[Rfam]
The family of this 143-nucleotide RNA from Rhodoglobus vestalii is "FMN riboswitch aptamer (RFN element)". Rfam's curators write: The RFN element is a highly conserved domain that is found frequently in the 5'-untranslated regions of prokaryotic mRNAs that encode for flavin mononucleotide (FMN) biosynthesis and transport proteins. Lineage of the source: Bacteria > Actinomycetota > Micrococcales > Microbacteriaceae > Rhodoglobus.

RNA sequence: GUACGUCCUCAGGGCGGGGUGAGAUUCCCCACCGGCGGUGUCGCGGCGAAUCCGUGUAAGCCCGCGAGUGUCUCCACUGUGGGGGUGCUGACCCGGUGUGAUUCCGGGGCCGACGGUUAUAGUCCGGAUGAGAGAGGACGGGA
Numbered sequence: 001g002u003a004c005g006u007c008c009u010c011a012g013g014g015c016g017g018g019g020u021g022a023g024a025u026u027c028c029c030c031a032c033c034g035g036c037g038g039u040g041u042c043g044c045g046g047c048g049a050a051u052c053c054g055u056g057u058a059a060g061c062c063c064g065c066g067a068g069u070g071u072c073u074c075c076a077c078u079g080u081g082g083g084g085g086u087g088c089u090g091a092c093c094c095g096g097u098g099u100g101a102u103u104c105c106g107g108g109g110c111c112g113a114c115g116g117u118u119a120u121a122g123u124c125c126g127g128a129u130g131a132g133a134g135a136g137g138a139c140g141g142g143a
Stems, first nucleotide, its partner, number of pairs: 004140007017029003031123002033112002035065004060110002068088003092108005114126003